Shown here is a 230-nucleotide RNA sequence from Beta vulgaris, a member of the family "MIR168 microRNA precursor family". For this family Rfam cites "MicroRNAs in plants" (Reinhart et al., Genes Dev, 2002). Gene Ontology terms of the family: miRNA-mediated post-transcriptional gene silencing and RISC complex.

RNA sequence: GUUGCGGUGGUCUCUGAUUCGCUUGGUGCAGGUCGGGAACUGGUUAUCGUUUUUUUUUUCUGAUUACUUCCGCCGCCAUUGGAGCAGCAGCAGUAAUCUUCGGAGAGAUAAUUAUUUUUUUCUUAUUUUUUUAUUUUUUUGGAAUUUUUUUUUAGAAAAUAUCUCUCUUCUGCUCAGUCGGUGGAUUACCGGAUCCCGCCUUGCAUCAACUGAAUCGGAGGCUGCGGUGA
Number, nucleotide and partner (000 for none) at each position: 001g000002u000003u000004g000005c000006g000007g000008u000009g000010g000011u000012c000013u219014c218015u000016g000017a215018u214019u213020c212021g000022c000023u209024u208025g207026g206027u205028g204029c203030a202031g201032g200033u000034c198035g197036g196037g195038a194039a000040c192041u191042g190043g189044u188045u000046a000047u000048c000049g000050u000051u000052u000053u000054u000055u000056u000057u000058u000059u000060c000061u000062g000063a000064u000065u000066a000067c000068u000069u000070c000071c000072g000073c000074c000075g000076c000077c000078a000079u000080u000081g000082g000083a000084g000085c000086a000087g000088c000089a000090g000091c000092a000093g000094u000095a000096a000097u000098c000099u000100u000101c000102g000103g000104a000105g000106a000107g000108a000109u000110a000111a000112u000113u000114a000115u000116u000117u000118u000119u000120u000121u000122c000123u000124u000125a000126u000127u000128u000129u000130u000131u000132u000133a000134u000135u000136u000137u000138u000139u000140u000141g000142g000143a000144a000145u000146u000147u000148u000149u000150u000151u000152u000153u000154a000155g000156a000157a000158a000159a000160u000161a000162u000163c000164u000165c000166u000167c000168u000169u000170c000171u000172g000173c000174u000175c000176a000177g000178u000179c000180g000181g000182u000183g000184g000185a000186u000187u000188a044189c043190c042191g041192g040193a000194u038195c037196c036197c035198g034199c000200c032201u031202u030203g029204c028205a027206u026207c025208a024209a023210c000211u000212g020213a019214a018215u017216c000217g000218g014219a013220g000221g000222c000223u000224g000225c000226g000227g000228u000229g000230a000